[Rfam]
RNA sequence: AGCAGGCAAGCGCAAGGGUUGUAGAGGUCGCUGGCGACAGCGGCAGCCCGGAUGGGUGGGAUCCUCGAACUUGGGGCCUGCAUCAUU
Numbered sequence: 001a002g003c004a005g006g007c008a009a010g011c012g013c014a015a016g017g018g019u020u021g022u023a024g025a026g027g028u029c030g031c032u033g034g035c036g037a038c039a040g041c042g043g044c045a046g047c048c049c050g051g052a053u054g055g056g057u058g059g060g061a062u063c064c065u066c067g068a069a070c071u072u073g074g075g076g077c078c079u080g081c082a083u084c085a086u087u
Base pairs, nucleotide, nucleotide: 002081003080004079005078006077007076011074013073014072015071016070022068024066025065026064027044028043029042030041031040032039033038047056048055049054
The family of this 87-nucleotide RNA sequence is "DUF3800-VII RNA". Pairs were carried over by alignment from the consensus structure, which is taken from published work. The sequence is in the family's curated seed alignment. Rfam classes the family as a small RNA.